Baculoviridae Nucleocapsid Assembly essential Element: a 194-nucleotide RNA sequence from Alphabaculovirus sujujubae. Pairs were carried over by alignment from the consensus structure, which was predicted with RNAfold. About the family: Internal cis-element within the ac83 gene. The literature on the family includes a 2017 paper in J Virol by Huang et al., "The Autographa californica Multiple Nucleopolyhedrovirus ac83 Gene Contains a cis-Acting Element That Is Essential for Nucleocapsid Assembly". Taxonomically the source falls in Alphabaculovirus sujujubae (Viruses, Lefavirales, Baculoviridae, Alphabaculovirus).

RNA sequence: CACUUUACGGUGCAAAUAUUGGCCGAUAUACUACGAUCUGAUGUUUGCGGUAUGAUAUUUAGUUCAAUAUACGAUCAAUAUACUACAUUGUCGGGUUCAUAUACUACGAUUGCGCCCAAAUAUACCUUCGAAAGUGUAAAAUCGUCAAAUUAUAUUGGUAAAAACGACACUAAAUCAUUCGAUAUACCAAUUUC
Numbered sequence: 001c002a003c004u005u006u007a008c009g010g011u012g013c014a015a016a017u018a019u020u021g022g023c024c025g026a027u028a029u030a031c032u033a034c035g036a037u038c039u040g041a042u043g044u045u046u047g048c049g050g051u052a053u054g055a056u057a058u059u060u061a062g063u064u065c066a067a068u069a070u071a072c073g074a075u076c077a078a079u080a081u082a083c084u085a086c087a088u089u090g091u092c093g094g095g096u097u098c099a100u101a102u103a104c105u106a107c108g109a110u111u112g113c114g115c116c117c118a119a120a121u122a123u124a125c126c127u128u129c130g131a132a133a134g135u136g137u138a139a140a141a142u143c144g145u146c147a148a149a150u151u152a153u154a155u156u157g158g159u160a161a162a163a164a165c166g167a168c169a170c171u172a173a174a175u176c177a178u179u180c181g182a183u184a185u186a187c188c189a190a191u192u193u194c
Stems, first nucleotide, its partner, number of pairs: 009188003016029005036053002039050001042047001136175002142167004150161004